[Rfam]
RNA sequence: CACACGUGGACGUUCGGCAGCGUCGGGGAGACAUCCCGUCGUCGCCGUUCCGGUCCCGUCUCCAGAAUGGUCUGGAGCGGGGGUGUCCACGGAGGUUCAACCGGAAAAAGGAUAAAG
Numbered sequence: 001c002a003c004a005c006g007u008g009g010a011c012g013u014u015c016g017g018c019a020g021c022g023u024c025g026g027g028g029a030g031a032c033a034u035c036c037c038g039u040c041g042u043c044g045c046c047g048u049u050c051c052g053g054u055c056c057c058g059u060c061u062c063c064a065g066a067a068u069g070g071u072c073u074g075g076a077g078c079g080g081g082g083g084u085g086u087c088c089a090c091g092g093a094g095g096u097u098c099a100a101c102c103g104g105a106a107a108a109a110g111g112a113u114a115a116a117g
Stems, first nucleotide, its partner, number of pairs: 001094001003092001005091007016046002024038002027035001055081005
Rfam assigns this 117-nucleotide sequence from Caulobacter radicis to the family "rpsB sRNA". The family's consensus secondary structure is taken from published work. The family has 4 seed sequences and 245 matches in Rfam 15.1. The literature on the family includes a 2009 paper in BMC Genomics by Meyer et al., "Identification of candidate structured RNAs in the marine organism 'Candidatus Pelagibacter ubique'". The source organism's lineage runs through Bacteria, Pseudomonadati, Caulobacterales, Caulobacteraceae and Caulobacter.